RNA: permuted transfer-messenger RNA
RNA sequence: GGCUGUUAUUCCGGUGACUCGGAAACGCUCUGGACAGGGGUUCGAUUCCCCUCACCUCCACCUAAGCCCAUAGGGGUACAGGCUGGGAAUAUACCAAGCUGUUGGCUUAGGUGGGGGUGUACUGGUUUCGACAGGGUGAAAGAAGAGAAGCAGGCAGCUCGAGAGGCGACGGACGUAAUCCGCGCAAAUCCAUAAUUGCCAACGAUGAGCAAUUCGCUAUUGCCGCCUAA
Number, nucleotide and partner (000 for none) at each position: 001g159002g158003c157004u156005g155006u000007u000008a000009u000010u000011c000012c000013g000014g000015u148016g000017a000018c000019u000020c000021g000022g000023a000024a000025a000026c138027g137028c136029u000030c134031u133032g132033g000034a000035c000036a052037g051038g050039g049040g048041u000042u000043c000044g000045a000046u000047u000048c040049c039050c038051c037052u036053c119054a118055c117056c116057u115058c114059c113060a112061c111062c110063u109064a108065a107066g106067c105068c104069c000070a000071u000072a000073g000074g000075g000076g000077u000078a000079c000080a000081g000082g000083c000084u000085g000086g000087g000088a000089a000090u000091a000092u000093a000094c000095c000096a000097a000098g000099c000100u000101g000102u000103u000104g068105g067106c066107u065108u064109a063110g062111g061112u060113g059114g058115g057116g056117g055118u054119g053120u000121a000122c000123u000124g000125g000126u000127u000128u000129c000130g000131a000132c032133a031134g030135g000136g028137u027138g026139a000140a000141a000142g000143a000144a000145g000146a000147g000148a015149a000150g000151c000152a000153g000154g000155c005156a004157g003158c002159u001160c175161g174162a000163g000164a000165g000166g000167c000168g000169a000170c000171g000172g000173a000174c161175g160176u000177a000178a000179u000180c000181c000182g000183c000184g000185c000186a000187a000188a000189u000190c000191c000192a000193u000194a000195a000196u000197u000198g000199c000200c000201a000202a000203c000204g000205a000206u000207g000208a000209g000210c000211a000212a000213u000214u000215c000216g000217c000218u000219a000220u000221u000222g000223c000224c000225g000226c000227c000228u000229a000230a000